[Rfam]
RNA sequence: UUGCGAUGUAGCAUGCCCGUUUGGUGUAAUACUCUGAUGUUUAUAUGCUAUUUUAUUCCUUUUGGGUAACGGGGUGUUACAAUUUG
Numbered sequence: 001u002u003g004c005g006a007u008g009u010a011g012c013a014u015g016c017c018c019g020u021u022u023g024g025u026g027u028a029a030u031a032c033u034c035u036g037a038u039g040u041u042u043a044u045a046u047g048c049u050a051u052u053u054u055a056u057u058c059c060u061u062u063u064g065g066g067u068a069a070c071g072g073g074g075u076g077u078u079a080c081a082a083u084u085u086g
Stems, first nucleotide, its partner, number of pairs: 002086002005083001007081008016073006